[Rfam]
RNA sequence: CGGGCGGUGGCGCCGCGCGCUACUCGGGCGCCGAGGCUGUGCCGACCGAGUCAGGUACCUGAAGUAGCGCGCGGUGCGGCCGCCC
Numbered sequence: 001c002g003g004g005c006g007g008u009g010g011c012g013c014c015g016c017g018c019g020c021u022a023c024u025c026g027g028g029c030g031c032c033g034a035g036g037c038u039g040u041g042c043c044g045a046c047c048g049a050g051u052c053a054g055g056u057a058c059c060u061g062a063a064g065u066a067g068c069g070c071g072c073g074g075u076g077c078g079g080c081c082g083c084c085c
Stems, first nucleotide, its partner, number of pairs: 010077003014073001016071007030056003035052004

The family of this 85-nucleotide RNA sequence from Plutella xylostella is "mir-275 microRNA precursor family". Its family is annotated with RISC complex and miRNA-mediated post-transcriptional gene silencing in the Gene Ontology. NCBI's taxonomy places the organism under Eukaryota, Allotriocarida, Lepidoptera, Plutellidae, Plutella. The match comes from Rfam's covariance-model search (64 bits).